[Rfam]
RNA sequence: CGGGGAGGUUUUAGUCGGUAGGCGCCGAACUGAACUUCGGUUCGGGACGGCGAAUCCGACACUACCCGGGGUAGUUCCCCGGGUGUCUUUUGAAGAUUUCUUCCUCG
Numbered sequence: 001c002g003g004g005g006a007g008g009u010u011u012u013a014g015u016c017g018g019u020a021g022g023c024g025c026c027g028a029a030c031u032g033a034a035c036u037u038c039g040g041u042u043c044g045g046g047a048c049g050g051c052g053a054a055u056c057c058g059a060c061a062c063u064a065c066c067c068g069g070g071g072u073a074g075u076u077c078c079c080c081g082g083g084u085g086u087c088u089u090u091u092g093a094a095g096a097u098u099u100c101u102u103c104c105u106c107g
Stems, first nucleotide, its partner, number of pairs: 001107008014060005023052005031044005062085001064084005
Dot-bracket structure: ((((((((.....(((((....(((((...(((((....)))))...)))))...))))).(.(((((...........))))))..............))))))))
RNA: R2 RNA element